[Rfam]
RNA sequence: CCUGGAGACUGCAAAUAUGCGUGGUCUCCGACAUUUAUCAUCUCAGGCAUAUUGCUUACUGGAGACACAGAUGGCAUUGACCGCUGAAAAGAAGGCCGAAAUCGUCAACGAAUACGGCCGUGGUGAG
Dot-bracket structure: ......((((((........))))))...................(.(............((.(..........).))).)..............................................

This 127-nucleotide RNA sequence from Modicisalibacter ilicicola belongs to the Rfam family "Ribosomal S15 leader". The source organism's lineage runs through Bacteria, Pseudomonadati, Pseudomonadota, Halomonadaceae and Modicisalibacter ilicicola. The family is grouped with related families in Rfam's "Ribosomal Protein S15 Leader clan". A search with the family's covariance model found it, with a score of 49 bits. The E. coli Ribosomal S15 gene 5' UTR can form two alternative structures. One that is a series of three hairpins, The other includes a pseudoknot. On this family, see Benard et al., Biochimie 1996: "Pseudoknot and translational control in the expression of the S15 ribosomal protein".